Record summary
The family of this 148-nucleotide RNA from Oceanicola sp. 22II-s10i is "FMN riboswitch aptamer (RFN element)". The match comes from Rfam's covariance-model search (100 bits).

[Rfam]
RNA sequence: CGCCGUUCUCAGGGCGGGGCGAAAUUCCCCACCGGCGGUAUGCGGACCCUCUCCGCGAGCCCGCGAGCGCCCCGGCGGAUGCCGGGGGUCAGCAGACCAGGUGCGAGGCCUGGGCCGACGGUCAUAGUCCGGAUGAAAGAGAACGUGC
Numbered sequence: 001c002g003c004c005g006u007u008c009u010c011a012g013g014g015c016g017g018g019g020c021g022a023a024a025u026u027c028c029c030c031a032c033c034g035g036c037g038g039u040a041u042g043c044g045g046a047c048c049c050u051c052u053c054c055g056c057g058a059g060c061c062c063g064c065g066a067g068c069g070c071c072c073c074g075g076c077g078g079a080u081g082c083c084g085g086g087g088g089u090c091a092g093c094a095g096a097c098c099a100g101g102u103g104c105g106a107g108g109c110c111u112g113g114g115c116c117g118a119c120g121g122u123c124a125u126a127g128u129c130c131g132g133a134u135g136a137a138a139g140a141g142a143a144c145g146u147g148c
Stems, first nucleotide, its partner, number of pairs: 004145007017029003031128002033117002035064004059115002067093002097113005119131003
The organism belongs to Oceanicola, within Bacteria.